[Rfam]
RNA: c-di-AMP riboswitch aptamer (ydaO/yuaA leader)
Organism: Galactobacter caseinivorans
RNA sequence: GCCGAUCACGGUCCAAAUACGAUUUUCGCUGGCAGUGGCGGGGGACCCAAUAUCGGUUCUGGGAAACCAGGGCCUUGGGGUUAAGUAUCCGAUUCGCACCGGAUGCCGAGAGACUCCCUCUCGAACCCGACAGCUCACCUCGUAGGCACAGGGAGAGGUACA
Numbered sequence: 001g002c003c004g005a006u007c008a009c010g011g012u013c014c015a016a017a018u019a020c021g022a023u024u025u026u027c028g029c030u031g032g033c034a035g036u037g038g039c040g041g042g043g044g045a046c047c048c049a050a051u052a053u054c055g056g057u058u059c060u061g062g063g064a065a066a067c068c069a070g071g072g073c074c075u076u077g078g079g080g081u082u083a084a085g086u087a088u089c090c091g092a093u094u095c096g097c098a099c100c101g102g103a104u105g106c107c108g109a110g111a112g113a114c115u116c117c118c119u120c121u122c123g124a125a126c127c128c129g130a131c132a133g134c135u136c137a138c139c140u141c142g143u144a145g146g147c148a149c150a151g152g153g154a155g156a157g158g159u160a161c162a
Stems, first nucleotide, its partner, number of pairs: 001147003007037003038143006048077002078128003086105006108122004